The family of this 347-nucleotide RNA sequence from Saccharomyces paradoxus is "Small nucleolar RNA snR42".
Rfam's curators put it in the seed alignment.
Lineage of the source: Eukaryota > Fungi > Ascomycota > Saccharomyces > Saccharomyces paradoxus.
By type it is an H/ACA-box small nucleolar RNA.
Gene Ontology terms of the family: RNA processing and nucleolus.
Its Rfam clan is "SNORA27 clan".
The base pairs follow the family's consensus structure, which is taken from published work.
RNA sequence: AUACAAAUUUGUGAUGCUUUAGGGGGCCUAUUGUUCGGCGGUUUAUAGGAGCCAGGUUUGUCUUUUGACGAACCUUUAACCUAUUUUUACUUCCAAAACCGUUACAAUGGCUUUCUUUUAUUAAAAUUUUUCUUUUCUUUUCUUUGGCUUAGUUUAUUUUUAAUAAGUUAUUUCAGGUGAAGAUAGAAGAAGGAUAAAGAGUAUCGUAGAUAAAUCUUCGGUUCCGAAUAGUCUAACUAUUGGUAUUGAGGUAAUCCAUCUUUAAAACCAUCGCCGUUAGAGGUUGCUUCUGAUGUUUUCGGUUAAGCGACCCAUGAAAUGGUGAUGACCUGAGGUAUGGAACAUCU
Numbered sequence: 001a002u003a004c005a006a007a008u009u010u011g012u013g014a015u016g017c018u019u020u021a022g023g024g025g026g027c028c029u030a031u032u033g034u035u036c037g038g039c040g041g042u043u044u045a046u047a048g049g050a051g052c053c054a055g056g057u058u059u060g061u062c063u064u065u066u067g068a069c070g071a072a073c074c075u076u077u078a079a080c081c082u083a084u085u086u087u088u089a090c091u092u093c094c095a096a097a098a099c100c101g102u103u104a105c106a107a108u109g110g111c112u113u114u115c116u117u118u119u120a121u122u123a124a125a126a127u128u129u130u131u132c133u134u135u136u137c138u139u140u141u142c143u144u145u146g147g148c149u150u151a152g153u154u155u156a157u158u159u160u161u162a163a164u165a166a167g168u169u170a171u172u173u174c175a176g177g178u179g180a181a182g183a184u185a186g187a188a189g190a191a192g193g194a195u196a197a198a199g200a201g202u203a204u205c206g207u208a209g210a211u212a213a214a215u216c217u218u219c220g221g222u223u224c225c226g227a228a229u230a231g232u233c234u235a236a237c238u239a240u241u242g243g244u245a246u247u248g249a250g251g252u253a254a255u256c257c258a259u260c261u262u263u264a265a266a267a268c269c270a271u272c273g274c275c276g277u278u279a280g281a282g283g284u285u286g287c288u289u290c291u292g293a294u295g296u297u298u299u300c301g302g303u304u305a306a307g308c309g310a311c312c313c314a315u316g317a318a319a320u321g322g323u324g325a326u327g328a329c330c331u332g333a334g335g336u337a338u339g340g341a342a343c344a345u346c347u
Stems, first nucleotide, its partner, number of pairs: 013205007022115007030108005037103008045084005054075005060069003127190005136183004143177005150170008216251007224243002227241005255341005260335002269327010282312008290302004